Overview
Shown here is a 109-nucleotide RNA from Lottiidibacillus patelloidae, a member of the family "pan motif". The family's RNA type in Rfam is cis-regulatory element. A search with the family's covariance model found it, with a score of 65 bits.
RNA sequence: AGGGUAGUAUCUUAAUCGAACUACACCUUUUAAAGAUUAUUUUUCAAGUAUAAUUAAAAAUAAUCGUAGAUACACUUUGCCUUGAUCCUAAUUGGACAGGGACUGAGGG
Numbered sequence: 001a002g003g004g005u006a007g008u009a010u011c012u013u014a015a016u017c018g019a020a021c022u023a024c025a026c027c028u029u030u031u032a033a034a035g036a037u038u039a040u041u042u043u044u045c046a047a048g049u050a051u052a053a054u055u056a057a058a059a060a061u062a063a064u065c066g067u068a069g070a071u072a073c074a075c076u077u078u079g080c081c082u083u084g085a086u087c088c089u090a091a092u093u094g095g096a097c098a099g100g101g102a103c104u105g106a107g108g109g
Stems, first nucleotide, its partner, number of pairs: 001028003004024005010019002077105001079103001080101005086096003